[Rfam]
This 302-nucleotide RNA sequence from Streptomyces sp. ICC1 belongs to the Rfam family "5' ureB small RNA". Pairs were carried over by alignment from the consensus structure, which was predicted with mfold. The family has 13 seed sequences and 4,812 matches in Rfam 15.1. NCBI's taxonomy places the organism under Bacteria, Bacillati, Actinomycetes, Kitasatosporales, Streptomyces. A search with the family's covariance model found it, with a score of 62 bits. Its family is annotated with negative regulation of gene expression in the Gene Ontology. For this family Rfam cites "Helicobacter pylori 5'ureB-sRNA, a cis-encoded antisense small RNA, negatively regulates ureAB expression by transcription termination" (Wen et al., J Bacteriol, 2013).

RNA sequence: CGUGCUCGGCCUGCUGCGGGGCGAUGAAGUGGAUGUGGGUGUCGAUGCCGCCGGCCGUGGCGAUCAGGUGCUCGCCGGAGAUGACCUCGGUGCCGGGCCCGAUGACCAGCUUGGGGUGGACCCCGGACUGGGUGUGCGGGUUGCCGGACUUGCCGAGACCCGCGAUGAACCCGUCCUUGAUGCCGAGGUCGCCCUUGACCACACCCAGGAUCGCGUCCAUGACCACCACGUUGGUGAUGACCAGGUCGAGGGCCCCCUGCAGGUUCGUGGCCUGCGGGUCCUGGGCCAUGCCGUCGCGGAUG
Numbered sequence: 001c002g003u004g005c006u007c008g009g010c011c012u013g014c015u016g017c018g019g020g021g022c023g024a025u026g027a028a029g030u031g032g033a034u035g036u037g038g039g040u041g042u043c044g045a046u047g048c049c050g051c052c053g054g055c056c057g058u059g060g061c062g063a064u065c066a067g068g069u070g071c072u073c074g075c076c077g078g079a080g081a082u083g084a085c086c087u088c089g090g091u092g093c094c095g096g097g098c099c100c101g102a103u104g105a106c107c108a109g110c111u112u113g114g115g116g117u118g119g120a121c122c123c124c125g126g127a128c129u130g131g132g133u134g135u136g137c138g139g140g141u142u143g144c145c146g147g148a149c150u151u152g153c154c155g156a157g158a159c160c161c162g163c164g165a166u167g168a169a170c171c172c173g174u175c176c177u178u179g180a181u182g183c184c185g186a187g188g189u190c191g192c193c194c195u196u197g198a199c200c201a202c203a204c205c206c207a208g209g210a211u212c213g214c215g216u217c218c219a220u221g222a223c224c225a226c227c228a229c230g231u232u233g234g235u236g237a238u239g240a241c242c243a244g245g246u247c248g249a250g251g252g253c254c255c256c257c258u259g260c261a262g263g264u265u266c267g268u269g270g271c272c273u274g275c276g277g278g279u280c281c282u283g284g285g286c287c288a289u290g291c292c293g294u295c296g297c298g299g300a301u302g
Stems, first nucleotide, its partner, number of pairs: 001302003005298001007296003012164003016160001018076002021073001023071001030053003034050002037048001039046002057069002077154002081150001085146001090144001092141003097135002106130001108129002110126002113123002170285004176278004182272001183270002194230001196228002206221002232267003239260001243258003